This 107-nucleotide RNA from Pelosinus sp. UFO1 belongs to the Rfam family "TPP riboswitch aptamer (THI element)". Pairs were carried over by alignment from the consensus structure, which is taken from published work. Taxonomically the source falls in Pelosinus (Bacteria, Bacillati, Negativicutes, Selenomonadales). It scores 61 bits against the family's covariance model.
RNA sequence: UUAAAUACGCUGGGGAGCUUGUAUGGCAGGCUGAGAAAAAGUAACCAAACUUUGACCCAAUACCUGAUUUGGAUAAUGCCAACGUAGGAAAUUAAUCUAUAGUGAUU
Numbered sequence: 001u002u003a004a005a006u007a008c009g010c011u012g013g014g015g016a017g018c019u020u021g022u023a024u025g026g027c028a029g030g031c032u033g034a035g036a037a038a039a040a041g042u043a044a045c046c047a048a049a050c051u052u053u054g055a056c057c058c059a060a061u062a063c064c065u066g067a068u069u070u071g072g073a074u075a076a077u078g079c080c081a082a083c084g085u086a087g088g089a090a091a092u093u094a095a096u097c098u099a100u101a102g103u104g105a106u107u
Base pairs, nucleotide, nucleotide: 006095009092011059012058013057014056017031018030019029020028021027038053039052040051041050042049063088064087065086066085069082070081071080072079